A member of the RNA family "int-alpA RNA" from Streptomyces sp. MS191, 66 nucleotides long. The match comes from Rfam's covariance-model search (48 bits). Rfam describes the family as follows. Acidobacteria (1 example), Planctomycetes (1 example), Proteobacteria.
RNA sequence: GCGGAGGCUAGGGUAGCUCCCGAAAAGCGUUCCCUGAGCGCCUGCCUCUGUCCCCAUCCAUCAGGG
Numbered sequence: 001g002c003g004g005a006g007g008c009u010a011g012g013g014u015a016g017c018u019c020c021c022g023a024a025a026a027g028c029g030u031u032c033c034c035u036g037a038g039c040g041c042c043u044g045c046c047u048c049u050g051u052c053c054c055c056a057u058c059c060a061u062c063a064g065g066g
Stems, first nucleotide, its partner, number of pairs: 001051008011021003027041004032066006

The family's consensus secondary structure is taken from published work.